[Rfam]
RNA: Bacterial RNase P class A
Organism: Umbribacter vaginalis
RNA sequence: AGAGUGAGCUAAACGGUCGCGUGAUACUGCGGUAUAUGCGCUCAAAAACGCACGUAUUUGCAGGUAUUAUGAGGAAAGUCCGGGCUCCUAAGAGCAAGAUGCCAGCUAACAGCUGGGCAGAGUAAUCUGACGGAUAAGUGCCACAGAAAAGAAAACUCGCGCUGUAUACGUGCCACAUUUCGUGACAACAUACAACGCGAAAAGCUGAAACGGUGCGGUAAGAGCGCACCAGUGCAUUGGUAACAAUGUAGCUUGGUAAACCCCAUCUGGAGCAAGCGCAAGUAGGAAUGCGAUACAGGCGCUCUUCUGUGCAUUCGGGUUGCGUGCUUGAAGCAUGUAGUGAUAUAUGCUCUAGAUAAAUGGCCGUUCACGACAGAACCCGGCUUAUAGGCUCACUCGCUUU
Numbered sequence: 001a002g003a004g005u006g007a008g009c010u011a012a013a014c015g016g017u018c019g020c021g022u023g024a025u026a027c028u029g030c031g032g033u034a035u036a037u038g039c040g041c042u043c044a045a046a047a048a049c050g051c052a053c054g055u056a057u058u059u060g061c062a063g064g065u066a067u068u069a070u071g072a073g074g075a076a077a078g079u080c081c082g083g084g085c086u087c088c089u090a091a092g093a094g095c096a097a098g099a100u101g102c103c104a105g106c107u108a109a110c111a112g113c114u115g116g117g118c119a120g121a122g123u124a125a126u127c128u129g130a131c132g133g134a135u136a137a138g139u140g141c142c143a144c145a146g147a148a149a150a151g152a153a154a155a156c157u158c159g160c161g162c163u164g165u166a167u168a169c170g171u172g173c174c175a176c177a178u179u180u181c182g183u184g185a186c187a188a189c190a191u192a193c194a195a196c197g198c199g200a201a202a203a204g205c206u207g208a209a210a211c212g213g214u215g216c217g218g219u220a221a222g223a224g225c226g227c228a229c230c231a232g233u234g235c236a237u238u239g240g241u242a243a244c245a246a247u248g249u250a251g252c253u254u255g256g257u258a259a260a261c262c263c264c265a266u267c268u269g270g271a272g273c274a275a276g277c278g279c280a281a282g283u284a285g286g287a288a289u290g291c292g293a294u295a296c297a298g299g300c301g302c303u304c305u306u307c308u309g310u311g312c313a314u315u316c317g318g319g320u321u322g323c324g325u326g327c328u329u330g331a332a333g334c335a336u337g338u339a340g341u342g343a344u345a346u347a348u349g350c351u352c353u354a355g356a357u358a359a360a361u362g363g364c365c366g367u368u369c370a371c372g373a374c375a376g377a378a379c380c381c382g383g384c385u386u387a388u389a390g391g392c393u394c395a396c397u398c399g400c401u402u403u
Stems, first nucleotide, its partner, number of pairs: 002398009011388001012368007020071009076386003080383005085272004092304004097268005102116005117131001118129004132263002138261002140257003157200005163194005212230006232252001233250007276325004286316006295310005332351008
Dot-bracket structure: .(((((((((((((((((.(((((((((..................................)))))))))....[[[.[[[[[((((...[[[[.((((((((((.....)))))(((((....)))).)((....(((((..............(((((.(((((......................))))).)))))...........((((((.......)))))).((((((((....))))))).)..)))..)))))))))))))...((((......((((((...(((((.]]]].))))))))))).....))))......((((((((....))))))))..........)))))))..........]]]]]]]].).))))))))).....